[Rfam]
RNA sequence: AUUAAAACUAUCCACACUUUGAGGGGCCAGCUAGUGCCUCUCUCAGGAAAGUAGCAACUUGGAGUAAAACUGGGCGUGCCUGAGGUCUUUGGAGAACAGUGGAUGCUCAUUUCCUCUGCCUUUCCUUGGCUGCCUACAGGU
Numbered sequence: 001a002u003u004a005a006a007a008c009u010a011u012c013c014a015c016a017c018u019u020u021g022a023g024g025g026g027c028c029a030g031c032u033a034g035u036g037c038c039u040c041u042c043u044c045a046g047g048a049a050a051g052u053a054g055c056a057a058c059u060u061g062g063a064g065u066a067a068a069a070c071u072g073g074g075c076g077u078g079c080c081u082g083a084g085g086u087c088u089u090u091g092g093a094g095a096a097c098a099g100u101g102g103a104u105g106c107u108c109a110u111u112u113c114c115u116c117u118g119c120c121u122u123u124c125c126u127u128g129g130c131u132g133c134c135u136a137c138a139g140g141u
Base pairs, nucleotide, nucleotide: 002063003062005060006059009056018048019047020046021042022041023040024039025038026037027036072133074131077129082124083123084122091114093112094111095110